[Rfam]
RNA sequence: GGGGGCGCAUUGGUUUCGACGGGGGUGAAUGAAGCCAAGGUUGCAGGUCGUGGCGCCGCUGGCCACGUAAAAAGCGGCACAAUCAUAAUUGCAAACGACAAUUACGAUUACGCAAUGGCAGCUUAAUUAAGCUGACCAUGUCAUAGCUUUGAUGUCUGAUAUUAGCUUUGACAACAACCCCAUCAGACUGGCUAUCUCUGCGUUGCACGUCCGUAGAGAGGCGAGAACCUAGCACGCGCUGGCUCAUAUGUUGCCUGUUCAGGGGCGUUCAUUUGGGCGAGAAACAAUACUUGAACUAAACCUGUAGACAUCUUGGUGGAGCAUUCUCGGACGGGAGUUCGACUCUCCCCGCCUCCACCA
Numbered sequence: 001g002g003g004g005g006c007g008c009a010u011u012g013g014u015u016u017c018g019a020c021g022g023g024g025g026u027g028a029a030u031g032a033a034g035c036c037a038a039g040g041u042u043g044c045a046g047g048u049c050g051u052g053g054c055g056c057c058g059c060u061g062g063c064c065a066c067g068u069a070a071a072a073a074g075c076g077g078c079a080c081a082a083u084c085a086u087a088a089u090u091g092c093a094a095a096c097g098a099c100a101a102u103u104a105c106g107a108u109u110a111c112g113c114a115a116u117g118g119c120a121g122c123u124u125a126a127u128u129a130a131g132c133u134g135a136c137c138a139u140g141u142c143a144u145a146g147c148u149u150u151g152a153u154g155u156c157u158g159a160u161a162u163u164a165g166c167u168u169u170g171a172c173a174a175c176a177a178c179c180c181c182a183u184c185a186g187a188c189u190g191g192c193u194a195u196c197u198c199u200g201c202g203u204u205g206c207a208c209g210u211c212c213g214u215a216g217a218g219a220g221g222c223g224a225g226a227a228c229c230u231a232g233c234a235c236g237c238g239c240u241g242g243c244u245c246a247u248a249u250g251u252u253g254c255c256u257g258u259u260c261a262g263g264g265g266c267g268u269u270c271a272u273u274u275g276g277g278c279g280a281g282a283a284a285c286a287a288u289a290c291u292u293g294a295a296c297u298a299a300a301c302c303u304g305u306a307g308a309c310a311u312c313u314u315g316g317u318g319g320a321g322c323a324u325u326c327u328c329g330g331a332c333g334g335g336a337g338u339u340c341g342a343c344u345c346u347c348c349c350c351g352c353c354u355c356c357a358c359c360a
Stems, first nucleotide, its partner, number of pairs: 001356007020329008034317008044304005049067005055078006117136001119134004139173005145167004154192003158188001160186001195224002198221002201218001209239002212236003242278005248272003253266003257296004263288001333349005
The record is a 360-nucleotide RNA sequence from Maridesulfovibrio salexigens, which matches "transfer-messenger RNA" in Rfam. NCBI's taxonomy places the organism under Bacteria, Desulfovibrionia, Desulfovibrionaceae, Maridesulfovibrio, Maridesulfovibrio salexigens. Bacterial tmRNA, also known as 10Sa RNA or SsrA, is named for its dual tRNA and mRNA-like properties. Its role is to liberate the mRNA from a stalled ribosome. To accomplish this part of the tmRNA is used as a reading frame that ends in a translation stop signal. Rfam classes the family as a non-coding RNA gene. It scores 200 bits against the family's covariance model.